[Rfam]
RNA sequence: GCCCAAAUCGCACGUGCCUGUGGUCGUGUGUCGGUCGGUGGGGAUCCGGACAAGAGGCCGGUAAACCAUCGGUGAAGAACCGGCAGCCGGAGGCGAACCGGCGAACUCCGUCUCUGCGGAGGAUCGCGACUUAAAGCAACGACGGACCGGGCUUUU
Numbered sequence: 001g002c003c004c005a006a007a008u009c010g011c012a013c014g015u016g017c018c019u020g021u022g023g024u025c026g027u028g029u030g031u032c033g034g035u036c037g038g039u040g041g042g043g044a045u046c047c048g049g050a051c052a053a054g055a056g057g058c059c060g061g062u063a064a065a066c067c068a069u070c071g072g073u074g075a076a077g078a079a080c081c082g083g084c085a086g087c088c089g090g091a092g093g094c095g096a097a098c099c100g101g102c103g104a105a106c107u108c109c110g111u112c113u114c115u116g117c118g119g120a121g122g123a124u125c126g127c128g129a130c131u132u133a134a135a136g137c138a139a140c141g142a143c144g145g146a147c148c149g150g151g152c153u154u155u156u
Stems, first nucleotide, its partner, number of pairs: 001152004008142003015138003022131005037070005046061004102126002106121006

Rfam assigns this 156-nucleotide RNA from Methylocystis heyeri to the family "Alphaproteobacterial sRNA ar45". NCBI's taxonomy places the organism under Bacteria, Pseudomonadati, Pseudomonadota, Methylocystaceae, Methylocystis. The pairing is the family consensus, mapped onto this sequence.